[Rfam]
Shown here is a 76-nucleotide sequence from Crocodylus porosus, a member of the family "Mammalian CPEB3 ribozyme". Taxonomically the source falls in Crocodylus (Eukaryota, Dipnotetrapodomorpha, Tetrapoda, Sauria). The match comes from Rfam's covariance-model search (43 bits).

RNA sequence: AUUGCAAGUUCAAAGCCACAGCAGAAGCACUCACAGCAUGGCUCUGUCAGAUUCCAAUGAAUCUGCAAAUUUUACU
Number, nucleotide and partner (000 for none) at each position: 001a000002u000003u000004g000005c000006a000007a000008g000009u000010u000011c000012a000013a000014a043015g042016c041017c040018a000019c000020a076021g075022c000023a073024g072025a071026a070027g039028c000029a000030c000031u000032c000033a000034c000035a000036g000037c000038a000039u027040g017041g016042c015043u014044c000045u000046g000047u000048c065049a064050g063051a062052u061053u060054c059055c000056a000057a000058u000059g054060a053061a052062u051063c050064u049065g048066c000067a000068a000069a000070u026071u025072u024073u023074a000075c021076u020